RNA: UnaL2 LINE 3' element
RNA sequence: UAUAAAAAUAAAUGUAAGUCGCUCUGGAUAAGGGCGUCUGCCAAAUGCCAUAAA
Numbered sequence: 001u002a003u004a005a006a007a008a009u010a011a012a013u014g015u016a017a018g019u020c021g022c023u024c025u026g027g028a029u030a031a032g033g034g035c036g037u038c039u040g041c042c043a044a045a046u047g048c049c050a051u052a053a054a
Stems, first nucleotide, its partner, number of pairs: 013043001014041003020036006